[Rfam]
RNA: Enterococcus sRNA 68 (Lacto-3 RNA)
RNA sequence: UGCGAUGAGUCGAGAGGUCUGGUAGCAACCCAAAUGGCUACCAUUAGACAUUUCGAGUGGGGCACAUUAACCUGCCGGAUUGCAGGGUGCCUGGUAAUGAUGAAAGUGGACGUUCA
Number, nucleotide and partner (000 for none) at each position: 001u000002g000003c000004g000005a000006u000007g000008a000009g000010u000011c000012g000013a000014g000015a000016g000017g049018u048019c047020u046021g042022g041023u040024a039025g038026c037027a000028a000029c000030c000031c000032a000033a000034a000035u000036g000037g026038c025039u024040a023041c022042c021043a000044u000045u000046a020047g019048a018049c017050a000051u000052u000053u000054c000055g000056a000057g000058u000059g000060g000061g091062g090063c089064a088065c087066a000067u000068u000069a000070a000071c086072c085073u084074g083075c082076c000077g000078g000079a000080u000081u000082g075083c074084a073085g072086g071087g065088u064089g063090c062091c061092u000093g000094g000095u000096a000097a000098u000099g000100a000101u116102g115103a114104a000105a000106g000107u000108g000109g000110a000111c000112g000113u000114u103115c102116a101